[Rfam]
RNA sequence: UGAUAAUAUUUUUUGCUAUUUUCGGCCAAUAACGCUAUGAUACAUAGGAUAAUUUUUCUAUAUGUCAUUGUGUUAUUAAUCGGAAAUAGCAAAACAGUAUUAUUC
Numbered sequence: 001u002g003a004u005a006a007u008a009u010u011u012u013u014u015g016c017u018a019u020u021u022u023c024g025g026c027c028a029a030u031a032a033c034g035c036u037a038u039g040a041u042a043c044a045u046a047g048g049a050u051a052a053u054u055u056u057u058c059u060a061u062a063u064g065u066c067a068u069u070g071u072g073u074u075a076u077u078a079a080u081c082g083g084a085a086a087u088a089g090c091a092a093a094a095c096a097g098u099a100u101u102a103u104u105c
Stems, first nucleotide, its partner, number of pairs: 002104004011094009021084005028077008037068006044061006
The family of this 105-nucleotide RNA sequence from Prunus armeniaca is "MIR6274 microRNA precursor family". The base pairs follow the family's consensus structure, which was predicted with RNAalifold. Gene Ontology terms of the family: RISC complex and miRNA-mediated post-transcriptional gene silencing.